[Rfam]
Rfam assigns this 148-nucleotide RNA from Carya illinoinensis to the family "Small nucleolar RNA snoR2/U65". The family is grouped with related families in Rfam's "SNORA65 clan". Taxonomically the source falls in Carya (Eukaryota, Embryophyta, Mesangiospermae, Gunneridae). Gene Ontology terms of the family: nucleolus and RNA processing.
RNA sequence: AUUUUAAUGUUGUAAAUCUAGUAGCUGUAAAUGGCGGUGACCGGUGAUGCUAUGAUUGGACCAACAGUGAUUCCAUGUUACGUAUGCUAAUAGGAAUCUGUGGAUCUGAUGCCAUUGGUCUAUGGAGCUGAUUUCUGCGAUUACAUUU
Numbered sequence: 001a002u003u004u005u006a007a008u009g010u011u012g013u014a015a016a017u018c019u020a021g022u023a024g025c026u027g028u029a030a031a032u033g034g035c036g037g038u039g040a041c042c043g044g045u046g047a048u049g050c051u052a053u054g055a056u057u058g059g060a061c062c063a064a065c066a067g068u069g070a071u072u073c074c075a076u077g078u079u080a081c082g083u084a085u086g087c088u089a090a091u092a093g094g095a096a097u098c099u100g101u102g103g104a105u106c107u108g109a110u111g112c113c114a115u116u117g118g119u120c121u122a123u124g125g126a127g128c129u130g131a132u133u134u135c136u137g138c139g140a141u142u143a144c145a146u147u148u
Stems, first nucleotide, its partner, number of pairs: 003060006009053001013049002018044001021041002024035003081139004093129002098125003102121005